[Rfam]
RNA: mir-194 microRNA precursor family
Organism: Astyanax mexicanus
Nucleotides: 081
Base pairs, nucleotide, nucleotide: 010074011073012072016068017067018066019065020064021063022062023061026058027057028056029055030054031053033052034051035050
Number, partner (000 for none) and nucleotide at each position: 001000u002000g003000g004000u005000g006000c007000u008000c009000a010074c011073u012072g013000g014000g015000u016068g017067u018066a019065a020064c021063a022062g023061u024000u025000c026058c027057u028056c029055c030054a031053u032000g033052u034051g035050g036000a037000a038000g039000a040000u041000c042000u043000c044000u045000g046000a047000g048000u049000g050035c051034c052033a053031g054030u055029g056028g057027a058026g059000a060000a061023g062022c063021u064020g065019u066018u067017a068016c069000u070000u071000g072012c073011a074010g075000a076000g077000g078000g079000u080000c081000a